The family of this 180-nucleotide sequence from Streptomyces roseochromogenus is "M-box riboswitch aptamer (ykoK leader)". Rfam links the family to the GO terms response to magnesium ion and regulation of gene expression. The source organism's lineage runs through Bacteria, Bacillati, Actinomycetota, Streptomycetaceae and Streptomyces roseochromogenus subsp. oscitans. Rfam's curators write: M-box riboswitch, also know as ykoK leader is described as a metaloregulatory RNA that sense divalent metals and function as a genetic control element of genes related to divalent metal transport in bacteria.
RNA sequence: CAGACACCUCGUACGGUGAGGCGUCUUCACGGACACAGGCCACUGAUCCCACGCGUCGAGAGACGCUCCGGAUCACGAAAGGUCUCCCCGGCCCACAGGGGUGACCCCAGGUGGCUUCCCCGCGGAUUCGCCGGGGAUCACGCCGUGAAGUGCCAAAGCUCUGACGAGUUGGGGAGCGCC
Numbered sequence: 001c002a003g004a005c006a007c008c009u010c011g012u013a014c015g016g017u018g019a020g021g022c023g024u025c026u027u028c029a030c031g032g033a034c035a036c037a038g039g040c041c042a043c044u045g046a047u048c049c050c051a052c053g054c055g056u057c058g059a060g061a062g063a064c065g066c067u068c069c070g071g072a073u074c075a076c077g078a079a080a081g082g083u084c085u086c087c088c089c090g091g092c093c094c095a096c097a098g099g100g101g102u103g104a105c106c107c108c109a110g111g112u113g114g115c116u117u118c119c120c121c122g123c124g125g126a127u128u129c130g131c132c133g134g135g136g137a138u139c140a141c142g143c144c145g146u147g148a149a150g151u152g153c154c155a156a157a158g159c160u161c162u163g164a165c166g167a168g169u170u171g172g173g174g175a176g177c178g179c180c
Stems, first nucleotide, its partner, number of pairs: 005176001007174004011165002015160003020154003025150008039115005045074005054065004081106004087100003117137006